[Rfam]
Small nucleolar RNA SNORD58: a 68-nucleotide RNA from Struthio camelus. The source organism's lineage runs through Eukaryota, Sarcopterygii, Archosauria, Palaeognathae and Struthio camelus. Gene Ontology terms of the family: RNA processing and nucleolus. On this family, see Galardi et al., Mol Cell Biol 2002: "Purified box C/D snoRNPs are able to reproduce site-specific 2'-O-methylation of target RNA in vitro". It is annotated as a C/D-box small nucleolar RNA.
RNA sequence: UUGCUAUGAUGACUAUCUUAGGACACCUUUGGAAUGCUCAUGAAAAAAAAUAUGUAUUUCUGAGCAAC
Numbered sequence: 001u002u003g004c005u006a007u008g009a010u011g012a013c014u015a016u017c018u019u020a021g022g023a024c025a026c027c028u029u030u031g032g033a034a035u036g037c038u039c040a041u042g043a044a045a046a047a048a049a050a051u052a053u054g055u056a057u058u059u060c061u062g063a064g065c066a067a068c
Stems, first nucleotide, its partner, number of pairs: 001067004
About the family: snoRNA U58 is found in introns 1, 3 and 6 of the ribosomal protein RPL17 gene in humans.